[Rfam]
RNA: Purine riboswitch aptamer
Organism: Bdellovibrio bacteriovorus
RNA sequence: ACUACUAACCGCGGUUACACAAAUAUAAGUCGGAGAUAGGGUCUGACGUUUCUACCUGCCACCGUAAAGGGCAGUCUAUUUGGAGCGAAUAUAUGUUG
Numbered sequence: 001a002c003u004a005c006u007a008a009c010c011g012c013g014g015u016u017a018c019a020c021a022a023a024u025a026u027a028a029g030u031c032g033g034a035g036a037u038a039g040g041g042u043c044u045g046a047c048g049u050u051u052c053u054a055c056c057u058g059c060c061a062c063c064g065u066a067a068a069g070g071g072c073a074g075u076c077u078a079u080u081u082g083g084a085g086c087g088a089a090u091a092u093a094u095g096u097u098g
Stems, first nucleotide, its partner, number of pairs: 020082006029047006056074005